[Rfam]
Nucleotides: 146
Base pairs, nucleotide, nucleotide: 006018007017008016009015030047031046032045033044038146039145040144041143051095052094053093056087057086058085059084060083061082062081063080064079065078068075099111100110101109102108103107116140117139118138119137120136121135122134123133124132
Number, partner (000 for none) and nucleotide at each position: 001000c002000a003000u004000g005000a006018u007017u008016a009015g010000c011000u012000u013000a014000g015009c016008u017007a018006g019000g020000a021000u022000u023000g024000u025000u026000u027000a028000g029000a030047g031046g032045g033044u034000a035000g036000u037000c038146g039145c040144a041143g042000u043000c044033g045032c046031c047030c048000c049000a050000a051095c052094u053093c054000c055000g056087a057086u058085u059084c060083a061082c062081a063080a064079a065078g066000c067000u068075a069000u070000u071000u072000c073000a074000u075068u076000g077000g078065u079064u080063u081062u082061g083060u084059g085058a086057g087056u088000a089000g090000g091000g092000u093053g094052a095051g096000a097000a098000a099111c100110a101109a102108c103107a104000u105000c106000u107103u108102g109101u110100u111099g112000g113000a114000a115000a116140c117139u118138u119137u120136a121135a122134u123133u124132u125000u126000c127000u128000u129000a130000a131000g132124a133123a134122g135121u136120u137119a138118a139117a140116g141000a142000a143041c144040u145039g146038u

IS605-orfB-II RNA: a 146-nucleotide RNA sequence. The base pairs follow the family's consensus structure, which is taken from published work.